[Rfam]
RNA: Transposase-2 RNA
RNA sequence: GAAACGUCAACCCCGCACAACACCGCUGGUGUUGGUCAGACGGGGACCGCCGUCUCGCAAGGGACGGCUGCC
Numbered sequence: 001g002a003a004a005c006g007u008c009a010a011c012c013c014c015g016c017a018c019a020a021c022a023c024c025g026c027u028g029g030u031g032u033u034g035g036u037c038a039g040a041c042g043g044g045g046a047c048c049g050c051c052g053u054c055u056c057g058c059a060a061g062g063g064a065c066g067g068c069u070g071c072c
Stems, first nucleotide, its partner, number of pairs: 011045005018034007049068008